The record is a 281-nucleotide RNA sequence from Sciurus vulgaris, which matches "7SK RNA" in Rfam. Clan: 7SK clan. A search with the family's covariance model found it, with a score of 295 bits. The family has 45 seed sequences and 49,373 matches in Rfam 15.1. NCBI's taxonomy places the organism under Eukaryota, Boreoeutheria, Euarchontoglires, Sciuromorpha, Sciurus. The family's consensus secondary structure is taken from published work. Rfam describes the family as follows. 7SK was discovered as an abundant small nuclear RNA in the mid-70s but a possible function has only recently been suggested.
RNA sequence: GGAUGUGAGGGCGAUCUGGCUGCGACAUCUGUCACCCCAUUGAUCGCCAGGGUUGAUUCGGCUGAUCUGGCUGGCUAGGCGGGUGUCCCCUUCCUCCCUCACCGCUCCAUGUGCAUCCCUCCCGAAGCUGCGCGCUCGGUCGAAGAGGACGACCUUCCCCGAUAGAGGAGGACCGUUCUUCGGUCAAGGGUAUACGAGUAGCUGCGCUCCCCUGCUAGAACCUCCAAACAAGCUCUCAAGAAGAAGAAGAAGAGGGCUGGGAGUACAGCUCAGUAUAGAGU
Numbered sequence: 001g002g003a004u005g006u007g008a009g010g011g012c013g014a015u016c017u018g019g020c021u022g023c024g025a026c027a028u029c030u031g032u033c034a035c036c037c038c039a040u041u042g043a044u045c046g047c048c049a050g051g052g053u054u055g056a057u058u059c060g061g062c063u064g065a066u067c068u069g070g071c072u073g074g075c076u077a078g079g080c081g082g083g084u085g086u087c088c089c090c091u092u093c094c095u096c097c098c099u100c101a102c103c104g105c106u107c108c109a110u111g112u113g114c115a116u117c118c119c120u121c122c123c124g125a126a127g128c129u130g131c132g133c134g135c136u137c138g139g140u141c142g143a144a145g146a147g148g149a150c151g152a153c154c155u156u157c158c159c160c161g162a163u164a165g166a167g168g169a170g171g172a173c174c175g176u177u178c179u180u181c182g183g184u185c186a187a188g189g190g191u192a193u194a195c196g197a198g199u200a201g202c203u204g205c206g207c208u209c210c211c212c213u214g215c216u217a218g219a220a221c222c223u224c225c226a227a228a229c230a231a232g233c234u235c236u237c238a239a240g241a242a243g244a245a246g247a248a249g250a251a252g253a254g255g256g257c258u259g260g261g262a263g264u265a266c267a268g269c270u271c272a273g274u275a276u277a278g279a280g281u
Stems, first nucleotide, its partner, number of pairs: 001108003005102007013093002018090002024087010035074002037070003042067004046062003116171002118168004122139004127135002140162003147158003201269003207263002210261003214257002222252002225249001229246001